[Rfam]
RNA sequence: UCCGCACUCACACUCACUCACGCGUGGCAGGAGCGGGGGAACCAGGUAAGUACGCCGGUCUCCGGAUGUCCCAUUGUCCGGACCGGCUUGGGGUUAAGUCGCGCACCGGCGCGGCCGGGCAUCUCCAGCCCGAACCCGACAGCUCACCUCGUAGGCGCCGGAGAGGAAUGUU
Numbered sequence: 001u002c003c004g005c006a007c008u009c010a011c012a013c014u015c016a017c018u019c020a021c022g023c024g025u026g027g028c029a030g031g032a033g034c035g036g037g038g039g040a041a042c043c044a045g046g047u048a049a050g051u052a053c054g055c056c057g058g059u060c061u062c063c064g065g066a067u068g069u070c071c072c073a074u075u076g077u078c079c080g081g082a083c084c085g086g087c088u089u090g091g092g093g094u095u096a097a098g099u100c101g102c103g104c105a106c107c108g109g110c111g112c113g114g115c116c117g118g119g120c121a122u123c124u125c126c127a128g129c130c131c132g133a134a135c136c137c138g139a140c141a142g143c144u145c146a147c148c149u150c151g152u153a154g155g156c157g158c159c160g161g162a163g164a165g166g167a168a169u170g171u172u
Stems, first nucleotide, its partner, number of pairs: 001032003033152006043090005091137003099114004117131004

Shown here is a 172-nucleotide RNA sequence from Streptomyces agglomeratus, a member of the family "c-di-AMP riboswitch aptamer (ydaO/yuaA leader)". Rfam describes the family as follows. This family represents a conserved RNA structure found upstream of the ydaO and yuaA genes in Bacillus subtilis and related genes in other bacteria. Gene Ontology terms of the family: regulation of gene expression and cyclic-di-AMP binding.